[Rfam]
RNA sequence: UUUUAAUUGUCGGAGUGCCUAAGACUAGGCUGAGAUCGCAUUAAGCGGGAUCCGUAGAACCUGAUCUGGUUAGUACCAGCGAAGGGAACAAUCUGAAACGCCAU
Numbered sequence: 001u002u003u004u005a006a007u008u009g010u011c012g013g014a015g016u017g018c019c020u021a022a023g024a025c026u027a028g029g030c031u032g033a034g035a036u037c038g039c040a041u042u043a044a045g046c047g048g049g050a051u052c053c054g055u056a057g058a059a060c061c062u063g064a065u066c067u068g069g070u071u072a073g074u075a076c077c078a079g080c081g082a083a084g085g086g087a088a089c090a091a092u093c094u095g096a097a098a099c100g101c102c103a104u
Base pairs, nucleotide, nucleotide: 006092007091008090009089010088011054012053013052014051016048017030018029019028020027021026037047038046039045060085061084062083066079067078068077069076

Shown here is a 104-nucleotide sequence from Thiomicrorhabdus sediminis, a member of the family "TPP riboswitch aptamer (THI element)". It scores 85 bits against the family's covariance model. Its family is annotated with thiamine pyrophosphate binding in the Gene Ontology. Lineage of the source: Bacteria > Gammaproteobacteria > Thiotrichales > Piscirickettsiaceae > Thiomicrorhabdus.